[Rfam]
RNA sequence: ACCGACACCUCGGGGUGCCCGUGUGCAACACGGCUGAGAUGCGAAAGCGGACCCGUUGAACCUGAACCGGCUAACACCGGCGGAGGGAAGGUAUCAGCGAUCACC
Numbered sequence: 001a002c003c004g005a006c007a008c009c010u011c012g013g014g015g016u017g018c019c020c021g022u023g024u025g026c027a028a029c030a031c032g033g034c035u036g037a038g039a040u041g042c043g044a045a046a047g048c049g050g051a052c053c054c055g056u057u058g059a060a061c062c063u064g065a066a067c068c069g070g071c072u073a074a075c076a077c078c079g080g081c082g083g084a085g086g087g088a089a090g091g092u093a094u095c096a097g098c099g100a101u102c103a104c105c
Stems, first nucleotide, its partner, number of pairs: 007092004011055004016049001017034003041048002061086003067080004